Rfam assigns this 52-nucleotide sequence to the family "S4-Clostridia ribosomal protein leader".
The base pairs follow the family's consensus structure, which is taken from published work.
For this family Rfam cites "Discovery of 20 novel ribosomal leader candidates in bacteria and archaea" (Eckert and Weinberg, BMC Microbiol, 2020).
RNA sequence: GAAAGGUCAGCCUGAGGCUGGCUGGGCAGCACGAAGGUGCGCCCCAAUUAGA
Dot-bracket structure: ....((((((((...))))))))((((.............))))........
Clan: Ribosomal Protein S4 Leader clan. By type it is a cis-regulatory leader.